[Rfam]
RNA sequence: CUCUCGGACUACUAUAUCAAACUAAAGUAGAUUAACUUCGGUUAUUCAAAAUAGGGUAGGUUGAACAGAGAA
Numbered sequence: 001c002u003c004u005c006g007g008a009c010u011a012c013u014a015u016a017u018c019a020a021a022c023u024a025a026a027g028u029a030g031a032u033u034a035a036c037u038u039c040g041g042u043u044a045u046u047c048a049a050a051a052u053a054g055g056g057u058a059g060g061u062u063g064a065a066c067a068g069a070g071a072a
Stems, first nucleotide, its partner, number of pairs: 001070004009059005022054003030047002035042001
RNA: RAGATH-18 RNA
Organism: Alkaliphilus sp. B6464